Annotation: A member of the RNA family "SAM riboswitch aptamer (S box leader)" from Brevibacillus fulvus, 110 nucleotides long. Taxonomically the source falls in Brevibacillus (Bacteria, Bacillota, Bacilli, Caryophanales).

RNA sequence: GUUUCAUCAAGAGUGGUGGAGGGACUGGCCCGAUGAAGCCCGGCAACCGGCACAGAUGUGCUUGGUGCUAAUUCCUGCAGAAUCUGCGAAACGAUUCUGAGAGAUGAACU
Numbered sequence: 001g002u003u004u005c006a007u008c009a010a011g012a013g014u015g016g017u018g019g020a021g022g023g024a025c026u027g028g029c030c031c032g033a034u035g036a037a038g039c040c041c042g043g044c045a046a047c048c049g050g051c052a053c054a055g056a057u058g059u060g061c062u063u064g065g066u067g068c069u070a071a072u073u074c075c076u077g078c079a080g081a082a083u084c085u086g087c088g089a090a091a092c093g094a095u096u097c098u099g100a101g102a103g104a105u106g107a108a109c110u
Stems, first nucleotide, its partner, number of pairs: 001110001003108006013041001015040003021031003025077001027075002042069004047065002050061004073102001078099006
From the family's description: The SAM riboswitch is found upstream of a number of genes which code for proteins involved in methionine or cysteine biosynthesis in Gram-positive bacteria. Its family is annotated with regulation of gene expression in the Gene Ontology.